A member of the RNA family "L31-Actinobacteria ribosomal protein leader" from Actinospica durhamensis, 47 nucleotides long. Lineage of the source: Bacteria > Actinomycetota > Actinomycetes > Catenulisporales > Actinospica. The family is grouped with related families in Rfam's "Ribosomal Protein L31 Leader clan". Pairs were carried over by alignment from the consensus structure, which is taken from published work. It is annotated as a cis-regulatory leader.

RNA sequence: UCGGUCCCGGUUCCCGUAGCGCACUCCCGCGCAGCGACCCGGCGGCC
Numbered sequence: 001u002c003g004g005u006c007c008c009g010g011u012u013c014c015c016g017u018a019g020c021g022c023a024c025u026c027c028c029g030c031g032c033a034g035c036g037a038c039c040c041g042g043c044g045g046c047c
Stems, first nucleotide, its partner, number of pairs: 003047003007042004015036003019032004